[Rfam]
RNA sequence: UCAGUUGUGAGACUGGGUGCGAAGGAAUCUUGAAGCAAUUUAUUAUGGAAAUUUUUGUGGAAAGCAAUAAUUUAUUGUGGAAAUCUCCCGCUGGACCUUACAUAACAAAGUGAAGGUCCAGCGGGAGAUUUCCACAAUAAAUUAUUUUUGGAAUGGUGGAGAUGGAACA
Number, nucleotide and partner (000 for none) at each position: 001u016002c015003a014004g013005u012006u011007g000008u000009g000010a000011g006012a005013c004014u003015g002016g001017g000018u000019g000020c000021g000022a000023a000024g000025g000026a000027a000028u169029c000030u167031u166032g000033a000034a000035g000036c161037a000038a000039u000040u156041u155042a154043u153044u152045a000046u000047g148048g147049a146050a145051a000052u000053u000054u000055u000056u000057g000058u000059g000060g000061a000062a000063a000064g000065c000066a000067a000068u144069a143070a142071u141072u140073u139074a000075u000076u000077g135078u134079g000080g132081a131082a130083a129084u128085c127086u126087c000088c000089c000090g000091c000092u116093g000094g000095a000096c000097c110098u109099u108100a000101c000102a000103u000104a000105a000106c000107a000108a099109a098110g097111u000112g000113a000114a000115g000116g092117u000118c000119c000120a000121g000122c000123g000124g000125g000126a086127g085128a084129u083130u082131u081132c080133c000134a078135c077136a000137a000138u000139a073140a072141a071142u070143u069144a068145u050146u049147u048148u047149u000150g000151g000152a044153a043154u042155g041156g040157u000158g000159g000160a000161g036162a000163u000164g000165g000166a031167a030168c000169a028

Group II catalytic intron D1-D4-3: a 169-nucleotide sequence. The pairing is the family consensus, mapped onto this sequence.